[Rfam]
RNA sequence: CACGACCCCUCGUGCGGUGUCAUCUUGCUGAACUCCCCCAGGGCCUGACGGCAGCAAGGGCAGGUGAGCUCUGGCAGGUGCACGAGGGGUCGCCUCA
Numbered sequence: 001c002a003c004g005a006c007c008c009c010u011c012g013u014g015c016g017g018u019g020u021c022a023u024c025u026u027g028c029u030g031a032a033c034u035c036c037c038c039c040a041g042g043g044c045c046u047g048a049c050g051g052c053a054g055c056a057a058g059g060g061c062a063g064g065u066g067a068g069c070u071c072u073g074g075c076a077g078g079u080g081c082a083c084g085a086g087g088g089g090u091c092g093c094c095u096c097a
Stems, first nucleotide, its partner, number of pairs: 004091011015078001018076005024068006035060003043052003
The family of this 97-nucleotide RNA from Brachybacterium alimentarium is "Bacterial small signal recognition particle RNA". The match comes from Rfam's covariance-model search (58 bits).